[Rfam]
Nucleotides: 076
Stems, first nucleotide, its partner, number of pairs: 001076001003074003008070003012066003016062012040047001
Number, partner (000 for none) and nucleotide at each position: 001076c002000c003074g004073g005072g006000u007000u008070g009069a010068g011000g012066u013065a014064g015000u016062a017061g018060g019059u020058u021057g022056u023055a024054u025053g026052g027051u028000u029000u030000a031000g032000a033000a034000u035000u036000a037000c038000a039000u040047c041000a042000c043000g044000g045000g046000a047040g048000a049000u050000a051027a052026c053025u054024g055023u056022a057021c058020a059019a060018c061017c062016u063000c064014c065013u066012a067000g068010c069009u070008u071000u072005c073004c074003u075000u076001g